[Rfam]
RNA sequence: GGCCGCCACCCCCUGUAACAGCGACUCCAUGUGGAAGUGUCUUUCUGUGUUCCAGUGGGGCUGCUGUUACCCAGGGUGCUGGC
Number, nucleotide and partner (000 for none) at each position: 001g000002g000003c000004c000005g000006c000007c000008a000009c076010c075011c074012c000013c000014u000015g070016u069017a068018a067019c066020a065021g064022c063023g000024a000025c060026u059027c058028c057029a056030u055031g000032u054033g053034g052035a000036a000037g000038u000039g000040u000041c000042u000043u000044u000045c000046u000047g000048u000049g000050u000051u000052c034053c033054a032055g030056u029057g028058g027059g026060g025061c000062u000063g022064c021065u020066g019067u018068u017069a016070c015071c000072c000073a000074g011075g010076g009077u000078g000079c000080u000081g000082g000083c000
mir-194 microRNA precursor family: an 83-nucleotide sequence from Erinaceus europaeus.
Lineage of the source: Eukaryota > Vertebrata > Euteleostomi > Tetrapoda > Erinaceus.
Pairs were carried over by alignment from the consensus structure, which was predicted with RNAalifold.
The match comes from Rfam's covariance-model search (69 bits).
The literature on the family includes a 2003 paper in RNA by Lagos-Quintana et al., "New microRNAs from mouse and human".